Small nucleolar RNA SNORD58: a 66-nucleotide sequence from Pogona vitticeps. On this family, see Kiss-Laszlo et al., Cell 1996: "Site-specific ribose methylation of preribosomal RNA: a novel function for small nucleolar RNAs". The family's consensus secondary structure was predicted with PFOLD. Clan: SNORD58 clan. Taxonomically the source falls in Pogona (Eukaryota, Craniata, Sarcopterygii, Lepidosauria).
RNA sequence: UGGCAAUGAUGACUAUCUUAGGACACCUUUGGAUUAACCGUGAAACAAACACAGAUUCUGAGCCAC
Numbered sequence: 001u002g003g004c005a006a007u008g009a010u011g012a013c014u015a016u017c018u019u020a021g022g023a024c025a026c027c028u029u030u031g032g033a034u035u036a037a038c039c040g041u042g043a044a045a046c047a048a049a050c051a052c053a054g055a056u057u058c059u060g061a062g063c064c065a066c
Stems, first nucleotide, its partner, number of pairs: 001065004